Rfam assigns this 87-nucleotide RNA sequence from Arachis duranensis to the family "Small nucleolar RNA R38". From the family's description: snoR38 is a C/D box small nucleolar RNA conserved across yeast, human, Arabidopsis and rice. It is encoded in the intron of elongation factor-1 gamma in both pombe and cerevisiae. snoR38 guides the methylation of 2'-O-ribose sites in 28S rRNA.
[Rfam]
RNA sequence: GUGCUGUGGAUGAUGAGAAAUAUAAUUUUACAGUUAUCCUUGGCUAAUAAUAUAGCAGGUGAUGAAAUUUUGUAAUCUGACACGCAC
Numbered sequence: 001g002u003g004c005u006g007u008g009g010a011u012g013a014u015g016a017g018a019a020a021u022a023u024a025a026u027u028u029u030a031c032a033g034u035u036a037u038c039c040u041u042g043g044c045u046a047a048u049a050a051u052a053u054a055g056c057a058g059g060u061g062a063u064g065a066a067a068u069u070u071u072g073u074a075a076u077c078u079g080a081c082a083c084g085c086a087c
Stems, first nucleotide, its partner, number of pairs: 001087004006083003
Annotation
By type it is a C/D-box small nucleolar RNA.